[Rfam]
RNA sequence: AAACUAAAUAAAGCCAAGCCGAAGACAGCAGGCGCCAUGGGCUGAAAUGUCCUGCCGAGGUUAAAGCUCUAAUUACUACCAUGUUUUACCAAUUAACGUGUAAAUACUGGGGUAUUAAGAGUUUUCCCCUCCGACCCCGGCUAACAUAGCUGGGGUUAAUUGUUUUGACU
Numbered sequence: 001a002a003a004c005u006a007a008a009u010a011a012a013g014c015c016a017a018g019c020c021g022a023a024g025a026c027a028g029c030a031g032g033c034g035c036c037a038u039g040g041g042c043u044g045a046a047a048u049g050u051c052c053u054g055c056c057g058a059g060g061u062u063a064a065a066g067c068u069c070u071a072a073u074u075a076c077u078a079c080c081a082u083g084u085u086u087u088a089c090c091a092a093u094u095a096a097c098g099u100g101u102a103a104a105u106a107c108u109g110g111g112g113u114a115u116u117a118a119g120a121g122u123u124u125u126c127c128c129c130u131c132c133g134a135c136c137c138c139g140g141c142u143a144a145c146a147u148a149g150c151u152g153g154g155g156u157u158a159a160u161u162g163u164u165u166u167g168a169c170u
Stems, first nucleotide, its partner, number of pairs: 028055005034042003135155009

The record is a 170-nucleotide RNA sequence from Anabaenopsis elenkinii, which matches "Ribosomal protein L10 leader" in Rfam. This family is a putative r-protein leader autoregulatory structure found in B. subtilis and other low-GC Gram-positive bacteria. It is located in the 5' untranslated regions of mRNAs encoding ribosomal proteins L10 and L12 (rplJ-rplL). A Rho-independent transcription terminator structure that is probably involved in regulation is included at the 3' end. For this family Rfam cites "Diverse mechanisms for regulating ribosomal protein synthesis in Escherichia coli" (Zengel and Lindahl, Prog Nucleic Acid Res Mol Biol, 1994). By type it is a cis-regulatory leader. It scores 60 bits against the family's covariance model. Taxonomically the source falls in Anabaenopsis elenkinii (Bacteria, Bacillati, Cyanophyceae, Nodulariaceae).